[Rfam]
RNA sequence: CACUGAAGAGUCCUGAAUUUAUAUGCGUUCUUGACGUUUUGGCGCUCUAGCACCAUAUGAAUUCAGCAUUCUCACUU
Numbered sequence: 001c002a003c004u005g006a007a008g009a010g011u012c013c014u015g016a017a018u019u020u021a022u023a024u025g026c027g028u029u030c031u032u033g034a035c036g037u038u039u040u041g042g043c044g045c046u047c048u049a050g051c052a053c054c055a056u057a058u059g060a061a062u063u064c065a066g067c068a069u070u071c072u073c074a075c076u077u
Stems, first nucleotide, its partner, number of pairs: 013066010024055002027053002030050002033047002035044002
mir-83 microRNA precursor family: a 77-nucleotide RNA sequence from Caenorhabditis auriculariae. Pairs were carried over by alignment from the consensus structure, which was predicted with RNAalifold. On this family, see Lau et al., Science 2001: "An abundant class of tiny RNAs with probable regulatory roles in Caenorhabditis elegans". Lineage of the source: Eukaryota > Protostomia > Nematoda > Rhabditoidea > Caenorhabditis. Gene Ontology terms of the family: RISC complex and miRNA-mediated post-transcriptional gene silencing.